Shown here is a 272-nucleotide part of an RNA, a member of the family "Eukaryotic large subunit ribosomal RNA".
The family's consensus secondary structure is taken from published work.
It is one of the family's seed sequences.
The family has 88 seed sequences and 107,465 matches in Rfam 15.1.

[Rfam]
RNA sequence: GAGUCCACCACUGUUGCGAGUAUUUUGGUGGCAAACCCAUACGCGAAAUGAAAUUGAAAGCUAUGAAAUCCGCAAGGAUGGCAAUAGCGUCCAGGCCUUUAGGACCGAGACAAAGCAAUAGUGAUGGGACCCGAAAGAUGGUGAACUAUGCUUGAGUAGAGUGAAGCCAGAAGAAAUUCUGGUGGAAGCUCGUAACGGUUCUGACGUGCAAAUCGAUCGUCGAACUUGAGCAUAGGGGCGAAAGACUAAUCGAACCAUCUAGUAGCAUGGUU
Numbered sequence: 001g002a003g004u005c006c007a008c009c010a011c012u013g014u015u016g017c018g019a020g021u022a023u024u025u026u027g028g029u030g031g032c033a034a035a036c037c038c039a040u041a042c043g044c045g046a047a048a049u050g051a052a053a054u055u056g057a058a059a060g061c062u063a064u065g066a067a068a069u070c071c072g073c074a075a076g077g078a079u080g081g082c083a084a085u086a087g088c089g090u091c092c093a094g095g096c097c098u099u100u101a102g103g104a105c106c107g108a109g110a111c112a113a114a115g116c117a118a119u120a121g122u123g124a125u126g127g128g129a130c131c132c133g134a135a136a137g138a139u140g141g142u143g144a145a146c147u148a149u150g151c152u153u154g155a156g157u158a159g160a161g162u163g164a165a166g167c168c169a170g171a172a173g174a175a176a177u178u179c180u181g182g183u184g185g186a187a188g189c190u191c192g193u194a195a196c197g198g199u200u201c202u203g204a205c206g207u208g209c210a211a212a213u214c215g216a217u218c219g220u221c222g223a224a225c226u227u228g229a230g231c232a233u234a235g236g237g238g239c240g241a242a243a244g245a246c247u248a249a250u251c252g253a254a255c256c257a258u259c260u261a262g263u264a265g266c267a268u269g270g271u272u
Base pairs, nucleotide, nucleotide: 005127006126007125009123010122011121012120013119014118015117016116017115020044021043025039027037028036029035048055060088061087062086063085064084068079069078090110091109092107094106095105096103097102130270131269133266137259138258139257140256141255142254146235147234148233149232150231151230152229153228154227155226156225157223159191160190161189162188166183167182168181169180170179171178172177195220196219197218198217200216201215203214204213237247238246
Dot-bracket structure: ....(((.(((((((((..((...(.(((.....))).)...))...(......)....(((((...((........))....))))).(((.((((....)).))).))....))))))))).)))..((.(...((((((...((((((((((((.((((...(((((((....)))))))....))))...((((.((.((........))))))))..).))))))))))).((.......))......))))))......)..))..